About this RNA:
A member of the RNA family "Actinobacteria sRNA Ms_IGR-7" from Corynebacterium casei, 117 nucleotides long. It is one of the family's seed sequences. The pairing is the family consensus, mapped onto this sequence. By type it is a small RNA. The literature on the family includes a 2013 paper in RNA by Li et al., "Identification of small RNAs in Mycobacterium smegmatis using heterologous Hfq". Taxonomically the source falls in Corynebacterium casei (Bacteria, Bacillati, Corynebacteriaceae, Corynebacterium).
RNA sequence: CAGAGGUGCCUUUCUGAUCCUAGAAAUAGUGGCGUGAACAACUACUAUUAUUCCAGGUCAAAAGGCACUUCUUCAGUUAAACCGCCGAACUCACACCAAAUUUAUCGGUGGAUCCAG
Numbered sequence: 001c002a003g004a005g006g007u008g009c010c011u012u013u014c015u016g017a018u019c020c021u022a023g024a025a026a027u028a029g030u031g032g033c034g035u036g037a038a039c040a041a042c043u044a045c046u047a048u049u050a051u052u053c054c055a056g057g058u059c060a061a062a063a064g065g066c067a068c069u070u071c072u073u074c075a076g077u078u079a080a081a082c083c084g085c086c087g088a089a090c091u092c093a094c095a096c097c098a099a100a101u102u103u104a105u106c107g108g109u110g111g112a113u114c115c116a117g
Base pairs, nucleotide, nucleotide: 002072003071004070005069006068007067008066009065010064011063012062013061015060016059017058019056021055023053024052026048027047029045031043032042100113101112102111103110104109